Source information
A member of the RNA family "U7 small nuclear RNA" from Gallus gallus, 59 nucleotides long. For this family Rfam cites "3' end processing of mouse histone pre-mRNA: evidence for additional base-pairing between U7 snRNA and pre-mRNA" (Spycher et al., Nucleic Acids Res, 1994). The family's consensus secondary structure was predicted with PFOLD. It scores 45 bits against the family's covariance model. Animal histone pre-mRNAs are spliced by a different mechanism than nuclear pre-mRNAs and self-splicing introns. This processing involves the U7 snRNP, which contains only one RNA species: U7. The 5' end of U7 RNA is thought to base-pair to a conserved spacer element downstream of the cleavage site in histone pre-mRNA. This family contains a number of annotated U7 pseudogenes. NCBI's taxonomy places the organism under Eukaryota, Vertebrata, Tetrapoda, Neognathae, Gallus.

[Rfam]
RNA sequence: AAGUGAUUUCACUCUUUAAGUAUUUGUCUAGUAGGUGUUCCACCCCAUGGGAAGCCCCU
Numbered sequence: 001a002a003g004u005g006a007u008u009u010c011a012c013u014c015u016u017u018a019a020g021u022a023u024u025u026g027u028c029u030a031g032u033a034g035g036u037g038u039u040c041c042a043c044c045c046c047a048u049g050g051g052a053a054g055c056c057c058c059u
Stems, first nucleotide, its partner, number of pairs: 034056003038052005